RNA sequence: UUACAGAACGUUUUAACUAAUAAACUGUUUUAUCCCUCUCCGAGAAAGAACAAUUUGACAGAGAAUGACAAAACAGUUUAUUAGUUAAAACGUAUUGUAAC
Numbered sequence: 001u002u003a004c005a006g007a008a009c010g011u012u013u014u015a016a017c018u019a020a021u022a023a024a025c026u027g028u029u030u031u032a033u034c035c036c037u038c039u040c041c042g043a044g045a046a047a048g049a050a051c052a053a054u055u056u057g058a059c060a061g062a063g064a065a066u067g068a069c070a071a072a073a074c075a076g077u078u079u080a081u082u083a084g085u086u087a088a089a090a091c092g093u094a095u096u097g098u099a100a101c
Base pairs, nucleotide, nucleotide: 001100002099003098004097005096006095011090012089013088014087015086016085017084018083019082020081021080022079023078024077025076026075027074028073029062030061031060033058034057

Shown here is a 101-nucleotide RNA sequence from Plutella xylostella, a member of the family "mir-8517 microRNA precursor family". The source organism's lineage runs through Eukaryota, Eumetazoa, Amphiesmenoptera, Glossata and Plutella. The match comes from Rfam's covariance-model search (73 bits). The family's consensus secondary structure was predicted with RNAalifold.